The family of this 124-nucleotide RNA from Anseranas semipalmata is "U8 small nucleolar RNA". It is annotated as a C/D-box small nucleolar RNA. A search with the family's covariance model found it, with a score of 66 bits. Its family is annotated with RNA processing and nucleolus in the Gene Ontology. The literature on the family includes a 2001 paper in Gene by Peculis et al., "The U8 snoRNA gene family: identification and characterization of distinct, functional U8 genes in Xenopus". The family's consensus secondary structure is taken from published work.
[Rfam]
RNA sequence: UCGUCAGUGCGGUAUAUCCUGACCUGCCCCGCUCCGGCGGGCAGUGCGUGAUGAGCGGAGCGUGAUGACGUGUGAUUACGAUCACGUGGCGCGGGACGGCAACACCCGUUGGCCCCUCUCUGAU
Numbered sequence: 001u002c003g004u005c006a007g008u009g010c011g012g013u014a015u016a017u018c019c020u021g022a023c024c025u026g027c028c029c030c031g032c033u034c035c036g037g038c039g040g041g042c043a044g045u046g047c048g049u050g051a052u053g054a055g056c057g058g059a060g061c062g063u064g065a066u067g068a069c070g071u072g073u074g075a076u077u078a079c080g081a082u083c084a085c086g087u088g089g090c091g092c093g094g095g096a097c098g099g100c101a102a103c104a105c106c107c108g109u110u111g112g113c114c115c116c117u118c119u120c121u122g123a124u
Stems, first nucleotide, its partner, number of pairs: 024044003028041005067085001070082002073078001089113002091109004